[Rfam]
RNA: Group II catalytic intron D1-D4-5
RNA sequence: GAGAACUGAUAUUCCGAUGGGUGAAAUGAGGGAGUAACGCCCCGAAGCGCCCUCCCUGAUACUCCGAAUAGCGGAAAGCAUGCAACUGCUUUCCCUAAAAGGUUAUAGAGCUCGGUGAAGUCGGCAGAGAACCGCCGUAAGACUGGUUUUCAGACCAGACACGAAAGCUGUCCAGCGGUGGAUGGUGCGGUCUAUAUGCCGGGGGUCGGAUAU
Number, nucleotide and partner (000 for none) at each position: 001g000002a000003g000004a000005a000006c000007u000008g000009a000010u000011a000012u000013u000014c000015c000016g000017a000018u000019g052020g051021g050022u049023g048024a000025a000026a000027u000028g000029a000030g000031g043032g042033a000034g040035u000036a000037a000038c000039g000040c034041c000042c032043c031044g000045a000046a000047g000048c023049g022050c021051c020052c019053u000054c205055c204056c203057u202058g000059a000060u000061a000062c000063u000064c115065c114066g113067a112068a106069u105070a104071g103072c102073g094074g093075a092076a091077a090078g089079c088080a087081u000082g000083c000084a000085a000086c000087u080088g079089c078090u077091u076092u075093c074094c073095c000096u000097a000098a000099a000100a000101g000102g072103u071104u070105a069106u068107a000108g000109a000110g000111c000112u067113c066114g065115g064116u000117g000118a000119a000120g000121u000122c201123g200124g199125c198126a197127g000128a000129g000130a000131a191132c190133c189134g188135c187136c163137g162138u161139a000140a000141g000142a000143c158144u157145g156146g155147u154148u153149u000150u000151c000152a000153g148154a147155c146156c145157a144158g143159a000160c000161a138162c137163g136164a000165a000166a000167g186168c185169u184170g183171u182172c181173c180174a179175g000176c000177g000178g000179u174180g173181g172182a171183u170184g169185g168186u167187g135188c134189g133190g132191u131192c000193u000194a000195u000196a000197u126198g125199c124200c123201g122202g057203g056204g055205g054206u000207c000208g000209g000210a000211u000212a000213u000